[Rfam]
RNA: Alphaproteobacteria transfer-messenger RNA
RNA sequence: UCCCUUCCCCCGCCGCCAUCGACCCCCUAUAUUGGACUUGCCGUUCGCAAGACCGGCUAUGGCGAUAAACGGACUUCGUAAUAAGCCUUUCGGACCCGGGGGCGGUACCCGGCGCCUCCACCACAGCCCUGUUGCGCGAGCGGCAGGUCGCCUUGCCAUCCUCGGGCGGCAGGGCUGCGGCGGGGGCGAAAUAGGAUCGACGAGGGUGUAAAGGUUGUUCUUUUGCCCGGCAUGGUACCGCCGUUAUCGGGCCUAACGCAUAGUUGCCAACGACAACAAUGCUCGGGUUGCUGUCGCCGCGUGAGCGGUGCUGGUACCCAAACCUAAGUCCUUGCGUUUAGCGAUGUAAGGCGGGGCCCGGAGGCGCCUGGCAACAGAAGCCUCCACU
Numbered sequence: 001u002c003c004c005u006u007c008c009c010c011c012g013c014c015g016c017c018a019u020c021g022a023c024c025c026c027c028u029a030u031a032u033u034g035g036a037c038u039u040g041c042c043g044u045u046c047g048c049a050a051g052a053c054c055g056g057c058u059a060u061g062g063c064g065a066u067a068a069a070c071g072g073a074c075u076u077c078g079u080a081a082u083a084a085g086c087c088u089u090u091c092g093g094a095c096c097c098g099g100g101g102g103c104g105g106u107a108c109c110c111g112g113c114g115c116c117u118c119c120a121c122c123a124c125a126g127c128c129c130u131g132u133u134g135c136g137c138g139a140g141c142g143g144c145a146g147g148u149c150g151c152c153u154u155g156c157c158a159u160c161c162u163c164g165g166g167c168g169g170c171a172g173g174g175c176u177g178c179g180g181c182g183g184g185g186g187c188g189a190a191a192u193a194g195g196a197u198c199g200a201c202g203a204g205g206g207u208g209u210a211a212a213g214g215u216u217g218u219u220c221u222u223u224u225g226c227c228c229g230g231c232a233u234g235g236u237a238c239c240g241c242c243g244u245u246a247u248c249g250g251g252c253c254u255a256a257c258g259c260a261u262a263g264u265u266g267c268c269a270a271c272g273a274c275a276a277c278a279a280u281g282c283u284c285g286g287g288u289u290g291c292u293g294u295c296g297c298c299g300c301g302u303g304a305g306c307g308g309u310g311c312u313g314g315u316a317c318c319c320a321a322a323c324c325u326a327a328g329u330c331c332u333u334g335c336g337u338u339u340a341g342c343g344a345u346g347u348a349a350g351g352c353g354g355g356g357c358c359c360g361g362a363g364g365c366g367c368c369u370g371g372c373a374a375c376a377g378a379a380g381c382c383u384c385c386a387c388u
Stems, first nucleotide, its partner, number of pairs: 040057004061227005071220004077214001086206003090203003096112005113188007228243004234253002238250002354369004360385006